[Rfam]
RNA sequence: UUCGCUACAAGAUUGAUACAGCCAUAGCUGUGGCAAUGUAAUACAAUAAUUAUUGCCACAGCUAUGACUGUACCAUUUUCCAGAAGCGGA
Numbered sequence: 001u002u003c004g005c006u007a008c009a010a011g012a013u014u015g016a017u018a019c020a021g022c023c024a025u026a027g028c029u030g031u032g033g034c035a036a037u038g039u040a041a042u043a044c045a046a047u048a049a050u051u052a053u054u055g056c057c058a059c060a061g062c063u064a065u066g067a068c069u070g071u072a073c074c075a076u077u078u079u080c081c082a083g084a085a086g087c088g089g090a
Stems, first nucleotide, its partner, number of pairs: 001090006008083001010079003014075002018071004023066016
Dot-bracket structure: ((((((.(.(((.((..((((.((((((((((((((((............)))))))))))))))).))))..)).)))...).))))))
RNA: mir-5727 microRNA precursor family